[Rfam]
RNA sequence: GUGCUUUAGGGAAGAACUGGUCCCUCACAUAUAAAUUUCCAUCUAAUCACUUUGUUAUUUGCCUUUUUUCCGGUUGCAUACUGAUCAUUAUAAGAUGGGAAAUGU
Dot-bracket structure: .....................................((((((..........((((.(....................).))))........))))))......
Numbered sequence: 001g002u003g004c005u006u007u008a009g010g011g012a013a014g015a016a017c018u019g020g021u022c023c024c025u026c027a028c029a030u031a032u033a034a035a036u037u038u039c040c041a042u043c044u045a046a047u048c049a050c051u052u053u054g055u056u057a058u059u060u061g062c063c064u065u066u067u068u069u070c071c072g073g074u075u076g077c078a079u080a081c082u083g084a085u086c087a088u089u090a091u092a093a094g095a096u097g098g099g100a101a102a103u104g105u
Stems, first nucleotide, its partner, number of pairs: 038099006054085004059080001
Description: Shown here is a 105-nucleotide RNA sequence from Hibiscus syriacus, a member of the family "Small nucleolar RNA snoR99". On this family, see Marker et al., Curr Biol 2002: "Experimental RNomics: identification of 140 candidates for small non-messenger RNAs in the plant Arabidopsis thaliana". The base pairs follow the family's consensus structure, which was predicted with WAR. Rfam classes the family as an H/ACA-box small nucleolar RNA. The source organism's lineage runs through Eukaryota, Streptophytina, eudicotyledons, Gunneridae and Hibiscus.